[Rfam]
A member of the RNA family "permuted transfer-messenger RNA" from Caulobacter henricii, 216 nucleotides long.
The family's RNA type in Rfam is non-coding RNA gene.
Pairs were carried over by alignment from the consensus structure, which is taken from published work.
Bacterial tmRNA, also known as 10Sa RNA or SsrA, is named for its dual tRNA and mRNA-like properties. Its role is to liberate the mRNA from a stalled ribosome. To accomplish this part of the tmRNA is used as a reading frame that ends in a translation stop signal. The broken mRNA is replaced in the ribosome by the tmRNA and translation of the tmRNA leads to addition of a proteolysis tag to the incomplete protein enabling recognition by a protease.
Taxonomically the source falls in Caulobacter (Bacteria, Alphaproteobacteria, Caulobacterales, Caulobacteraceae).
Nucleotides: 216
Base pairs, nucleotide, nucleotide: 001138002137003136004135005134013126014125015124016123025115026114029112030111031110035051036050037049038048039047052098053097054096055095056094057093058092139153140152141151
Number, partner (000 for none) and nucleotide at each position: 001138g002137g003136g004135g005134a006000u007000a008000a009000a010000c011000g012000c013126g014125c015124a016123c017000g018000u019000a020000a021000u022000a023000a024000g025115c026114g027000g028000a029112c030111u031110g032000g033000a034000c035051c036050c037049g038048g039047g040000u041000g042000c043000g044000a045000u046000u047039c048038c049037c050036g051035g052098c053097g054096g055095c056094u057093c058092c059000a060000c061000c062000a063000a064000u065000c066000u067000c068000u069000u070000c071000c072000g073000g074000g075000u076000u077000a078000u079000c080000a081000c082000g083000g084000a085000a086000c087000u088000g089000c090000a091000u092058g093057g094056g095055g096054c097053c098052g099000a100000u101000c102000a103000g104000c105000a106000u107000c108000g109000a110031c111030a112029g113000a114026c115025g116000u117000g118000u119000a120000a121000a122000g123016g124015u125014g126013u127000u128000a129000u130000g131000c132000u133000u134005u135004c136003u137002c138001u139153c140152g141151g142000c143000g144000u145000g146000g147000c148000u149000c150000a151141c152140c153139g154000u155000u156000u157000c158000g159000g160000g161000c162000c163000g164000c165000u166000a167000a168000a169000c170000u171000a172000a173000a174000u175000g176000c177000g178000a179000a180000c181000g182000a183000u184000a185000a186000c187000u188000u189000c190000g191000c192000u193000g194000a195000a196000g197000a198000g199000u200000u201000c202000g203000c204000c205000a206000u207000c208000g209000c210000c211000g212000c213000g214000u215000a216000a